Nucleotides: 102
Base pairs, nucleotide, nucleotide: 001102003099004098011037012036016032017031018030019029022027035088040095041094042093043092045091046090047089048086049085050084
Number, partner (000 for none) and nucleotide at each position: 001102a002000u003099u004098g005000a006000a007000a008000a009000a010000g011037g012036c013000a014000a015000a016032c017031c018030u019029g020000a021000c022027c023000g024000a025000a026000a027022g028000a029019c030018a031017g032016g033000g034000g035088c036012g037011c038000a039000a040095a041094g042093c043092c044000a045091c046090g047089g048086g049085c050084c051000u052000a053000a054000g055000a056000c057000a058000a059000u060000c061000g062000u063000c064000g065000c066000a067000a068000c069000a070000a071000a072000c073000g074000a075000g076000a077000u078000u079000g080000u081000u082000a083000g084050g085049g086048u087000a088035g089047c090046c091045g092043g093042g094041u095040u096000g097000c098004c099003g100000g101000u102001u
A member of the RNA family "c-di-GMP-I-GGC riboswitch aptamer" from Cohnella fermenti, 102 nucleotides long. A search with the family's covariance model found it, with a score of 63 bits. The family's consensus secondary structure is taken from published work. Rfam links the family to the GO term cyclic-di-GMP binding.